[Rfam]
RNA sequence: GCAUGGAUGAAUUCUGCUUUAGCUUUUGCAGUAGCCAUUGCAGUCAGACACCAUGCAAAAUUAAAUUUCAUUUGUACCUUUUAUCCUGAUGGAACCAUACUUUACUGGGUGUCAUCAGAAUUACAUCUGAAUACAGUU
Numbered sequence: 001g002c003a004u005g006g007a008u009g010a011a012u013u014c015u016g017c018u019u020u021a022g023c024u025u026u027u028g029c030a031g032u033a034g035c036c037a038u039u040g041c042a043g044u045c046a047g048a049c050a051c052c053a054u055g056c057a058a059a060a061u062u063a064a065a066u067u068u069c070a071u072u073u074g075u076a077c078c079u080u081u082u083a084u085c086c087u088g089a090u091g092g093a094a095c096c097a098u099a100c101u102u103u104a105c106u107g108g109g110u111g112u113c114a115u116c117a118g119a120a121u122u123a124c125a126u127c128u129g130a131a132u133a134c135a136g137u138u
Stems, first nucleotide, its partner, number of pairs: 001056006014043004067131003073125004084120001086118007094110003